[Rfam]
RNA sequence: UUACUUACCUGGCAGGGGAGAUACCAUGAUCAAGACUGUGGUUUACCCAGGGAGAGGCUUAACCAUUGCACUCCGGUUAUGCUGACCCGUGCGAAUUCCCCAAAUGUGGGAAUCUCGACUGCAUAAUUUGCGAUAGUGGGGGACUGCGUUCGCGCUCUCCCCUG
Numbered sequence: 001u002u003a004c005u006u007a008c009c010u011g012g013c014a015g016g017g018g019a020g021a022u023a024c025c026a027u028g029a030u031c032a033a034g035a036c037u038g039u040g041g042u043u044u045a046c047c048c049a050g051g052g053a054g055a056g057g058c059u060u061a062a063c064c065a066u067u068g069c070a071c072u073c074c075g076g077u078u079a080u081g082c083u084g085a086c087c088c089g090u091g092c093g094a095a096u097u098c099c100c101c102a103a104a105u106g107u108g109g110g111a112a113u114c115u116c117g118a119c120u121g122c123a124u125a126a127u128u129u130g131c132g133a134u135a136g137u138g139g140g141g142g143a144c145u146g147c148g149u150u151c152g153c154g155c156u157c158u159c160c161c162c163u164g
Base pairs, nucleotide, nucleotide: 012122013121014120015119016048017047018046020044021043023042024041025040026039027038049090051088052087054086056083057082058081060079061078062077063076064075092117093116094115095113096112097111099109100108138163139162140161141160142159143158146155147154148153

Rfam assigns this 164-nucleotide sequence from Perca fluviatilis to the family "U1 spliceosomal RNA". Rfam 15.1 lists 40,184 matches to the family in 1,499 species. For this family Rfam cites "The uRNA database" (Zwieb, Nucleic Acids Res, 1997). Rfam's curators write: U1 is a small nuclear RNA (snRNA) component of the spliceosome (involved in pre-mRNA splicing). Its 5' end forms complementary base pairs with the 5' splice junction, thus defining the 5' donor site of an intron. It is annotated as a spliceosomal small nuclear RNA. The match comes from Rfam's covariance-model search (150 bits).